[Rfam]
RNA sequence: GGAUGACUGAUUUCCUUUGGUGUUCAGAGUCUGCUGGAGUUUCUAGCACCAUUUGAAAUCGGUUAUUU
Numbered sequence: 001g002g003a004u005g006a007c008u009g010a011u012u013u014c015c016u017u018u019g020g021u022g023u024u025c026a027g028a029g030u031c032u033g034c035u036g037g038a039g040u041u042u043c044u045a046g047c048a049c050c051a052u053u054u055g056a057a058a059u060c061g062g063u064u065a066u067u068u
Stems, first nucleotide, its partner, number of pairs: 001068004005063001007062008018051005026044003
The record is a 68-nucleotide RNA sequence from Atractosteus spatula, which matches "mir-29 microRNA precursor family" in Rfam. On this family, see Ambros, Cell 2001: "microRNAs: tiny regulators with great potential". This family represents the microRNA (miRNA) precursors mir-29. Rfam links the family to the GO terms RISC complex and gene silencing by miRNA.